[Rfam]
RNA sequence: GCCCCCGUCAUUGGGGAGUAGCCGCCCGGCAACGCGACCGGGGCCUGCGUCAACAGACUUGCCCGUCCGGGCAUGGCGCAGACAGUGGCGGGCGCGAUGCGCCCGCGGGCCUGGCGAGACCUUUGACCGUGCCACC
Numbered sequence: 001g002c003c004c005c006c007g008u009c010a011u012u013g014g015g016g017a018g019u020a021g022c023c024g025c026c027c028g029g030c031a032a033c034g035c036g037a038c039c040g041g042g043g044c045c046u047g048c049g050u051c052a053a054c055a056g057a058c059u060u061g062c063c064c065g066u067c068c069g070g071g072c073a074u075g076g077c078g079c080a081g082a083c084a085g086u087g088g089c090g091g092g093c094g095c096g097a098u099g100c101g102c103c104c105g106c107g108g109g110c111c112u113g114g115c116g117a118g119a120c121c122u123u124u125g126a127c128c129g130u131g132c133c134a135c136c
Base pairs, nucleotide, nucleotide: 026041027040028039043083045081046080047079048078049077050076051075052074060073061072062071063070064069085135086134087133088132089131090130
Shown here is a 136-nucleotide sequence from Pseudothauera nasutitermitis, a member of the family "Manganese Mn2+ riboswitch aptamer (yybP-ykoY)". From the family's description: This RNA was originally discovered in E. coli during a large scale screen and was named SraF. The family was later found to exist upstream of related families of protein genes in many bacteria, including the the yybP and ykoK genes in B. subtilis. The literature on the family includes a 2001 paper in Curr Biol by Argaman et al., "Novel small RNA-encoding genes in the intergenic regions of Escherichia coli".